[Rfam]
RNA sequence: UACCGAUAAUAGCAAACUUAUCGAAAGGUAAGGACGCAAAGCUAUGGGUCUAAAGCAACAACUGUUGAUACGAUUGCCAAGCUACCGAA
Numbered sequence: 001u002a003c004c005g006a007u008a009a010u011a012g013c014a015a016a017c018u019u020a021u022c023g024a025a026a027g028g029u030a031a032g033g034a035c036g037c038a039a040a041g042c043u044a045u046g047g048g049u050c051u052a053a054a055g056c057a058a059c060a061a062c063u064g065u066u067g068a069u070a071c072g073a074u075u076g077c078c079a080a081g082c083u084a085c086c087g088a089a
Stems, first nucleotide, its partner, number of pairs: 012037002017032006040083004045079003048074003056067003

The record is an 89-nucleotide sequence from Paraliobacillus sp. PM-2, which matches "c-di-GMP-I riboswitch aptamer" in Rfam. From the family's description: GEMM was predicted in a large-scale screen for bacterial structured RNA regulatory elements. It scores 79 bits against the family's covariance model.